The family of this 103-nucleotide RNA sequence from Takifugu rubripes is "Vault RNA". The literature on the family includes a 2009 paper in Mol Biol Evol by Stadler et al., "Evolution of Vault RNAs". It is one of the family's seed sequences. The family's RNA type in Rfam is non-coding RNA gene.

RNA sequence: GCACUGGCUUGGCUCAGCGGUUACUUCACCUCAAAUCAAAUCUGUUUGAUUACGUGGUCUCCUCCCAACCGGGAUCGAACCGCGGGCGCCGUCCAGUGUUUUC
Dot-bracket structure: .((((((....((((.((((....(((.................................................))))))))))).....)))))).....